[Rfam]
RNA: MIR9563 microRNA precursor family
RNA sequence: GGAAUAUAACCCUUCUCUUAACUUUUAACUAAAAAAACUAAGAACCGACUCUUAAAUAUCUUAUUUAAGAGCCGGUUCUUAGCUUUUUUUAGUUAAAAGUUAAGAUAUGAGUUCUUAUAUUCC
Dot-bracket structure: ((((((((((.(.(.(((((((((((((((((((((.(((((((...............................)))))))..))))))))))))))))))))).).).))...))))))))
Numbered sequence: 001g002g003a004a005u006a007u008a009a010c011c012c013u014u015c016u017c018u019u020a021a022c023u024u025u026u027a028a029c030u031a032a033a034a035a036a037a038c039u040a041a042g043a044a045c046c047g048a049c050u051c052u053u054a055a056a057u058a059u060c061u062u063a064u065u066u067a068a069g070a071g072c073c074g075g076u077u078c079u080u081a082g083c084u085u086u087u088u089u090u091a092g093u094u095a096a097a098a099g100u101u102a103a104g105a106u107a108u109g110a111g112u113u114c115u116u117a118u119a120u121u122c123c
Stems, first nucleotide, its partner, number of pairs: 001123008009112002012109001014107001016105021038082007